[Rfam]
RNA sequence: CAAUAGGCUAGGGUAGCUCCCAAAAAGCGUCCUCCAACGCCUGCCUAUUGUUUUUAUAAAUUUGGAGG
Numbered sequence: 001c002a003a004u005a006g007g008c009u010a011g012g013g014u015a016g017c018u019c020c021c022a023a024a025a026a027g028c029g030u031c032c033u034c035c036a037a038c039g040c041c042u043g044c045c046u047a048u049u050g051u052u053u054u055u056a057u058a059a060a061u062u063u064g065g066a067g068g
Stems, first nucleotide, its partner, number of pairs: 001050008011021003027040004031068006

int-alpA RNA: a 68-nucleotide RNA sequence from Lachnospiraceae bacterium A2. It scores 45 bits against the family's covariance model. Pairs were carried over by alignment from the consensus structure, which is taken from published work. Acidobacteria (1 example), Planctomycetes (1 example), Proteobacteria.